RNA sequence: CAAAAGGGCAUUCGGCAAAAUUGCCGUGCGCCGCGCUCUGCGUGGCGUACAGAAUCGCCAUCAAGAGAUUCUGAAUGCGUAAUUUUUAGGAAUGGGGCUGUUGGUUGUCGUUCGCACCGGCGCCCCU
Numbered sequence: 001c002a003a004a005a006g007g008g009c010a011u012u013c014g015g016c017a018a019a020a021u022u023g024c025c026g027u028g029c030g031c032c033g034c035g036c037u038c039u040g041c042g043u044g045g046c047g048u049a050c051a052g053a054a055u056c057g058c059c060a061u062c063a064a065g066a067g068a069u070u071c072u073g074a075a076u077g078c079g080u081a082a083u084u085u086u087u088a089g090g091a092a093u094g095g096g097g098c099u100g101u102u103g104g105u106u107g108u109c110g111u112u113c114g115c116a117c118c119g120g121c122g123c124c125c126c127u
Stems, first nucleotide, its partner, number of pairs: 008078005013026005027049009050073007095125004100121005106116003

Notes:
U11 spliceosomal RNA: a 127-nucleotide RNA from Rhipicephalus sanguineus. Pairs were carried over by alignment from the consensus structure, which is taken from published work. It is annotated as a spliceosomal small nuclear RNA. Rfam 15.1 lists 2,595 matches to the family in 1,202 species. NCBI's taxonomy places the organism under Eukaryota, Opisthokonta, Arachnida, Acari, Rhipicephalus.